[Rfam]
RNA: mir-9186 microRNA precursor family
RNA sequence: UAGGGGGGGGAUAGAUGACUAUCUGGCAUUGUGGUAACUACAGCUCGCAGUGCCAGACAGUCUUCUACCCUCUCCCUACA
Numbered sequence: 001u002a003g004g005g006g007g008g009g010g011a012u013a014g015a016u017g018a019c020u021a022u023c024u025g026g027c028a029u030u031g032u033g034g035u036a037a038c039u040a041c042a043g044c045u046c047g048c049a050g051u052g053c054c055a056g057a058c059a060g061u062c063u064u065c066u067a068c069c070c071u072c073u074c075c076c077u078a079c080a
Base pairs, nucleotide, nucleotide: 001078002077003076004075005074007072008071009070010069013066014065015064017062018061019060020059023056024055025054026053027052028051029050030049031048